[Rfam]
About this RNA: The record is a 102-nucleotide sequence from Gemella morbillorum, which matches "Purine riboswitch aptamer" in Rfam. Rfam links the family to the GO term purine nucleobase biosynthetic process. The family's consensus secondary structure is taken from published work.

RNA sequence: UAUUAAUUAAAUAAUAUAGCACAUAUAAAGGCAGGGAUAUGGCUUGCAAGUUUCUACCAUCGAACCGUAAAUUUGAUGACUAUGGGCAAUUCUCUAUCGAUG
Dot-bracket structure: ..................((.((((.....(((((.......)))))..........(((((((.......)))))))..)))).))...............